[Rfam]
RNA sequence: CUACAGCCAGCAGCAUCAGUCACAGAGCUAACAGCCACUAAUGCCUUAGCUCUGUGACUGAUGCUGCUGGCUGUAG
Number, nucleotide and partner (000 for none) at each position: 001c000002u075003a074004c073005a000006g000007c070008c069009a068010g000011c066012a065013g064014c000015a062016u061017c060018a059019g058020u057021c056022a000023c000024a053025g052026a051027g050028c049029u048030a047031a046032c000033a000034g000035c000036c000037a000038c000039u000040a000041a000042u000043g000044c000045c000046u031047u030048a029049g028050c027051u026052c025053u024054g000055u000056g021057a020058c019059u018060g017061a016062u015063g000064c013065u012066g011067c000068u009069g008070g007071c000072u000073g004074u003075a002076g000
Shown here is a 76-nucleotide sequence from Nicator chloris, a member of the family "mir-458 microRNA precursor family". On this family, see Glazov et al., Genome Res 2008: "A microRNA catalog of the developing chicken embryo identified by a deep sequencing approach". A search with the family's covariance model found it, with a score of 61 bits. Rfam 15.1 lists 1,011 matches to the family in 491 species. Lineage of the source: Eukaryota > Archelosauria > Archosauria > Neognathae > Nicator.